The record is a 77-nucleotide sequence from Flavobacterium sp. PL002, which matches "Flavo-1 RNA" in Rfam. NCBI's taxonomy places the organism under Bacteria, Pseudomonadati, Bacteroidota, Flavobacteriaceae, Flavobacterium. By type it is a small RNA. The base pairs follow the family's consensus structure, which is taken from published work.

[Rfam]
RNA sequence: UUUUAGCCCUGAUUGCAGCGGCAUCCUUGCUCUUUUUUCUUAAAAAGAGCAAGAUAUAGCGGAAAGCAGGAAAUAGC
Numbered sequence: 001u002u003u004u005a006g007c008c009c010u011g012a013u014u015g016c017a018g019c020g021g022c023a024u025c026c027u028u029g030c031u032c033u034u035u036u037u038u039c040u041u042a043a044a045a046a047g048a049g050c051a052a053g054a055u056a057u058a059g060c061g062g063a064a065a066g067c068a069g070g071a072a073a074u075a076g077c
Base pairs, nucleotide, nucleotide: 009069010068011067013065014064018060019059023055024054025053029050030049031048032047033046034045035044036043